[Rfam]
RNA sequence: AGGUGGGGUAGAGGCGCGGCAGGCCAUGAGUAGCCGCCCAGAGCAGGGCAGCGGAGAAGGGCGGGGAAAGGGGCCGCCGCCGAAGCCGGGCGACCGCUCCAGGCGCCUGAGCUGGGUCGGCAGUUAAGAGCUGCCGGACUGUCACCUGCGGCCACCCCGGACCGCAGGUGGUGAGCUAUCUCACAG
Numbered sequence: 001a002g003g004u005g006g007g008g009u010a011g012a013g014g015c016g017c018g019g020c021a022g023g024c025c026a027u028g029a030g031u032a033g034c035c036g037c038c039c040a041g042a043g044c045a046g047g048g049c050a051g052c053g054g055a056g057a058a059g060g061g062c063g064g065g066g067a068a069a070g071g072g073g074c075c076g077c078c079g080c081c082g083a084a085g086c087c088g089g090g091c092g093a094c095c096g097c098u099c100c101a102g103g104c105g106c107c108u109g110a111g112c113u114g115g116g117u118c119g120g121c122a123g124u125u126a127a128g129a130g131c132u133g134c135c136g137g138a139c140u141g142u143c144a145c146c147u148g149c150g151g152c153c154a155c156c157c158c159g160g161a162c163c164g165c166a167g168g169u170g171g172u173g174a175g176c177u178a179u180c181u182c183a184c185a186g
Stems, first nucleotide, its partner, number of pairs: 006181006016080005023074003034064006084113003087109006094102001114140002117137008142171010